Overview: The family of this 148-nucleotide sequence from Myotis davidii is "Small nucleolar RNA SNORA57". A search with the family's covariance model found it, with a score of 146 bits. Rfam 15.1 lists 1,736 matches to the family in 530 species. Rfam's curators write: U99 belongs to the H/ACA class of snoRNAs which are thought to guide the sites of modification of uridines to pseudouridines, the target for this family is unknown. The family's consensus secondary structure was predicted with PFOLD. The literature on the family includes a 2003 paper in Nucleic Acids Res by Vitali et al., "Identification of 13 novel human modification guide RNAs". It is annotated as an H/ACA-box small nucleolar RNA.
[Rfam]
RNA sequence: CCUCCUCUUCUUGGCGAGGUUCGGGCCUGCGGUCCCGGUCCCCGUAAUGUAUGGAGGCAGAGGGGAGGGCUCCAACCCCCUCGGCGUCAUGUCUUCGAUGCCGACGGUUGCCAGUCCGCCGGUUCUAUCCUCAAGCUCCGGGACACGG
Numbered sequence: 001c002c003u004c005c006u007c008u009u010c011u012u013g014g015c016g017a018g019g020u021u022c023g024g025g026c027c028u029g030c031g032g033u034c035c036c037g038g039u040c041c042c043c044g045u046a047a048u049g050u051a052u053g054g055a056g057g058c059a060g061a062g063g064g065g066a067g068g069g070c071u072c073c074a075a076c077c078c079c080c081u082c083g084g085c086g087u088c089a090u091g092u093c094u095u096c097g098a099u100g101c102c103g104a105c106g107g108u109u110g111c112c113a114g115u116c117c118g119c120c121g122g123u124u125c126u127a128u129c130c131u132c133a134a135g136c137u138c139c140g141g142g143a144c145a146c147g148g
Stems, first nucleotide, its partner, number of pairs: 001057005015044002018041002022037004082140003086136002101122003105118003
Dot-bracket structure: (((((.........((.((..((((........))))..)).))........)))))........................(((.((.............(((.(((........))).)))............)).)))........